The record is a 74-nucleotide sequence from Mycetocola zhujimingii, which matches "c-di-GMP-I riboswitch aptamer" in Rfam. The source organism's lineage runs through Bacteria, Bacillati, Actinomycetota, Micrococcales and Mycetocola. GEMM was predicted in a large-scale screen for bacterial structured RNA regulatory elements.
RNA sequence: CACCGAUAACGGCAAACCCGACGUAAGUCGGCGGCGCAAAGGCACGGGACCCACGGGUUAGCCGGUCUACCGAA
Numbered sequence: 001c002a003c004c005g006a007u008a009a010c011g012g013c014a015a016a017c018c019c020g021a022c023g024u025a026a027g028u029c030g031g032c033g034g035c036g037c038a039a040a041g042g043c044a045c046g047g048g049a050c051c052c053a054c055g056g057g058u059u060a061g062c063c064g065g066u067c068u069a070c071c072g073a074a
Stems, first nucleotide, its partner, number of pairs: 012037002018031005040068004045064003048059004